[Rfam]
Nucleotides: 051
Base pairs, nucleotide, nucleotide: 006024007023008022009021010020011019014044015043016042017041
Number, partner (000 for none) and nucleotide at each position: 001000u002000g003000a004000g005000g006024u007023g008022a009021u010020u011019g012000u013000a014044g015043a016042a017041c018000g019011c020010a021009a022008u023007c024006a025000c026000g027000u028000u029000a030000a031000u032000a033000u034000a035000a036000a037000g038000a039000a040000a041017g042016u043015u044014c045000g046000a047000u048000u049000g050000g051000u

Rfam assigns this 51-nucleotide RNA sequence to the family "6A RNA".
The family's consensus secondary structure is taken from published work.
The family's RNA type in Rfam is small RNA.